[Rfam]
A member of the RNA family "Small Cajal body specific RNA 16" from Dromaius novaehollandiae, 184 nucleotides long. The literature on the family includes a 2002 paper in EMBO J by Darzacq et al., "Cajal body-specific small nuclear RNAs: a novel class of 2'-O-methylation and pseudouridylation guide RNAs". Rfam's curators write: scaRNAs are a specific class of small nuclear RNAs which localise to the Cajal bodies and guide the modification of RNA polymerase II transcribed spliceosomal RNAs U1, U2, U4, U5 and U12. The source organism's lineage runs through Eukaryota, Metazoa, Bilateria, Archelosauria and Dromaius. A search with the family's covariance model found it, with a score of 128 bits. Gene Ontology terms of the family: RNA processing and nucleolus. Pairs were carried over by alignment from the consensus structure, which was predicted with RNAfold.
RNA sequence: CAGGGCUUGGGAAGUGGCUUGCUGUGUAGUUGGAGCCAGGUGGCUUCAGCCUCAUACCAGCCGGCCUCACCCGUGCCCCAGAUUAACUCCCACGCAGACUCCGUGCUGGGGUUUGUCCUAUGCAGUAACAGGUGUGAGCAUUCAUGGAGUGUUUUGAUGGUCAUGUAUGAUACUGCAUACAACA
Numbered sequence: 001c002a003g004g005g006c007u008u009g010g011g012a013a014g015u016g017g018c019u020u021g022c023u024g025u026g027u028a029g030u031u032g033g034a035g036c037c038a039g040g041u042g043g044c045u046u047c048a049g050c051c052u053c054a055u056a057c058c059a060g061c062c063g064g065c066c067u068c069a070c071c072c073g074u075g076c077c078c079c080a081g082a083u084u085a086a087c088u089c090c091c092a093c094g095c096a097g098a099c100u101c102c103g104u105g106c107u108g109g110g111g112u113u114u115g116u117c118c119u120a121u122g123c124a125g126u127a128a129c130a131g132g133u134g135u136g137a138g139c140a141u142u143c144a145u146g147g148a149g150u151g152u153u154u155u156g157a158u159g160g161u162c163a164u165g166u167a168u169g170a171u172a173c174u175g176c177a178u179a180c181a182a183c184a
Base pairs, nucleotide, nucleotide: 003078004077005076006075008073009072010071016066017065018064019063021061022060023059024058026057027056029050030049031048032047034045035044036043090111091110094106095105096104119179120178121177122176123175124174125173126172127171129169130168135163136162137161139159140158141157142156146153147152